Description:
This 77-nucleotide RNA sequence from Cynoglossus semilaevis belongs to the Rfam family "Small nucleolar RNA SNORD72". The source organism's lineage runs through Eukaryota, Euteleosteomorpha, Neoteleostei, Carangaria and Cynoglossus. Rfam describes the family as follows. snoRNA HBII-240 belongs to the CD family of snoRNAs. It is the human orthologue of the mouse MBII-240 and is predicted to guide 2'O-ribose methylation of the large 28S rRNA at residue U4590. Rfam links the family to the GO terms RNA processing and nucleolus. The match comes from Rfam's covariance-model search (74 bits).
RNA sequence: GGCUUACCAGUGAUGGUGAAAAAAAAUGUCUGAACAAAUGAAUCAUAAUGAUAUCAGUAUUUUCUCUGAGGUAAGCU
Dot-bracket structure: .(((((((.............................................................))))))).